[Rfam]
RNA sequence: GAUCCCGGAGGUUCACACCCGACAGCGCGUGGCGCCCUCGGGUGCGUUUCCG
Numbered sequence: 001g002a003u004c005c006c007g008g009a010g011g012u013u014c015a016c017a018c019c020c021g022a023c024a025g026c027g028c029g030u031g032g033c034g035c036c037c038u039c040g041g042g043u044g045c046g047u048u049u050c051c052g
Stems, first nucleotide, its partner, number of pairs: 016044007025035004
ffh sRNA: a 52-nucleotide RNA sequence from Polymorphum gilvum.
On this family, see Meyer et al., BMC Genomics 2009: "Identification of candidate structured RNAs in the marine organism 'Candidatus Pelagibacter ubique'".
It scores 57 bits against the family's covariance model.
The base pairs follow the family's consensus structure, which is taken from published work.
Taxonomically the source falls in Polymorphum gilvum (Bacteria, Pseudomonadati, Rhodobacterales, Polymorphum).